[Rfam]
Nucleotides: 142
Base pairs, nucleotide, nucleotide: 007062008061009060010059011058012057015052016051020049021048022046023043024042025041026040064114065113066112067111068110069109117137119140123135124134125133
Number, partner (000 for none) and nucleotide at each position: 001000c002000u003000a004000a005000a006000a007062c008061g009060u010059u011058u012057c013000u014000a015052g016051g017000g018000u019000u020049c021048c022046g023043a024042u025041u026040c027000u028000g029000c030000c031000u032000a033000u034000g035000g036000c037000u038000g039000u040026g041025a042024a043023u044000g045000u046022c047000u048021g049020g050000u051016c052015c053000a054000a055000g056000a057012g058011a059010g060009g061008c062007g063000a064114u065113c066112c067111u068110g069109c070000a071000g072000u073000g074000c075000c076000u077000u078000g079000a080000g081000c082000g083000a084000c085000g086000u087000c088000u089000u090000a091000a092000a093000u094000g095000a096000u097000g098000u099000c100000u101000u102000c103000a104000g105000g106000g107000c108000c109069g110068c111067a112066g113065g114064a115000c116000a117137c118000a119140c120000g121000g122000a123135g124134g125133g126000a127000u128000a129000a130000a131000a132000g133125c134124c135123c136000g137117g138000g139000a140119g141000a142000a
The family of this 142-nucleotide RNA sequence from Leptolyngbya sp. BL0902 is "Guanidine-I riboswitch aptamer". It scores 78 bits against the family's covariance model. Rfam links the family to the GO term regulation of gene expression. Lineage of the source: Bacteria > Cyanophyceae > Leptolyngbyales > Leptolyngbyaceae > Leptolyngbya.